[Rfam]
RNA sequence: AGGCAGCCCCCUUUUCUUCAAAACAAAAUGGAGAGGGAGGUGUUAAUCUGCUCGAAAAUUGAUUGAUCUUAUGCUCUUCAGACCUGCUGAGAUUUGUCUCUUUGAGGCAGGUCUAGUAACGCCUAAGUACAUU
Dot-bracket structure: .((((.((((((((((.............)))))))).)))))).......................(((..(((....(((((.(((..((......)).....))).)))))....).))..)))......